[Rfam]
Nucleotides: 069
Stems, first nucleotide, its partner, number of pairs: 001069002007065002009061008018052004023047005
Number, partner (000 for none) and nucleotide at each position: 001069a002068g003000c004000u005000g006000g007065g008064g009061a010060u011059u012058c013057c014056u015055g016054g017000a018052g019051a020050u021049g022000g023047g024046a025045u026044u027043u028000u029000u030000u031000u032000g033000a034000u035000a036000a037000g038000g039000c040000u041000a042000u043027a044026a045025a046024u047023c048000a049021c050020a051019u052018u053000g054016c055015c056014a057013g058012g059011g060010a061009u062000u063000u064008c065007c066000a067000a068002c069001u
The family of this 69-nucleotide RNA sequence from Aquarana catesbeiana is "mir-23 microRNA precursor family". A search with the family's covariance model found it, with a score of 57 bits. Gene Ontology terms of the family: gene silencing by miRNA and RISC complex. On this family, see Chen et al., Genes Dev 2005: "The developmental miRNA profiles of zebrafish as determined by small RNA cloning".